[Rfam]
Notes: Small Cajal body specific RNA 23: a 131-nucleotide sequence from Callipepla squamata. The organism belongs to Callipepla, within Eukaryota. On this family, see Darzacq et al., EMBO J 2002: "Cajal body-specific small nuclear RNAs: a novel class of 2'-O-methylation and pseudouridylation guide RNAs". Its family is annotated with nucleolus, Cajal body and RNA processing in the Gene Ontology. The base pairs follow the family's consensus structure, which was predicted with RNAfold. Rfam 15.1 lists 399 matches to the family in 374 species. It scores 60 bits against the family's covariance model. scaRNAs are a specific class of small nuclear RNAs which localise to the Cajal bodies and guide the modification of RNA polymerase II transcribed spliceosomal RNAs U1, U2, U4, U5 and U12. ACA11 belongs to the H/ACA box class of guide RNAs as it has the predicted hairpin-hinge-hairpin-tail structure,the conserved H/ACA-box motifs and is found associated with GAR1. H/ACA snRNAs are predicted to guide the modification of uridines to pseudouridines in substrate RNAs however, no target RNA has been identified for scaRNA ACA11.

RNA sequence: GUGCUCACAAGAACACUUAUCCUGCCGUGUGGCUGAGAUGGGUUUGGGGACAAUGUGAGCUACAUGAAGAGUAUUGCUUUGGGAGUGUCUCGUUUCAGGCCCCAUGGGACACUACAGUUUUCAAUACAACA
Dot-bracket structure: ..((((((...(((...((((...((....))....)))).)))..........))))))..........(.((((..(((..(((((((((..........)..)))))))).)))....)))).)....